[Rfam]
RNA sequence: GGCUCAGCUCUUGCUAUGGAAACUCCACAGGUAACCAACGGCGGUUGCCCCACCUACGACAAAGACGUCGC
Numbered sequence: 001g002g003c004u005c006a007g008c009u010c011u012u013g014c015u016a017u018g019g020a021a022a023c024u025c026c027a028c029a030g031g032u033a034a035c036c037a038a039c040g041g042c043g044g045u046u047g048c049c050c051c052a053c054c055u056a057c058g059a060c061a062a063a064g065a066c067g068u069c070g071c
Stems, first nucleotide, its partner, number of pairs: 030049007

The family of this 71-nucleotide RNA from Pseudomonas sp. CF161 is "narK RNA".
The family's RNA type in Rfam is cis-regulatory element.